[Rfam]
RNA: azaaromatic riboswitch aptamer (yjdF RNA)
RNA sequence: UCCGGGACGAGCGAAAACACGAUCCAGUUGGUAGUCCGGGUGCUCGUAUGCGAGUCGGUAACCUCCCACCCAAGGUGCCCGGUUGGACCCGAAUCUCC
Numbered sequence: 001u002c003c004g005g006g007a008c009g010a011g012c013g014a015a016a017a018c019a020c021g022a023u024c025c026a027g028u029u030g031g032u033a034g035u036c037c038g039g040g041u042g043c044u045c046g047u048a049u050g051c052g053a054g055u056c057g058g059u060a061a062c063c064u065c066c067c068a069c070c071c072a073a074g075g076u077g078c079c080c081g082g083u084u085g086g087a088c089c090c091g092a093a094u095c096u097c098c
Stems, first nucleotide, its partner, number of pairs: 004090003008086001010084002022041004027036001042055005065075002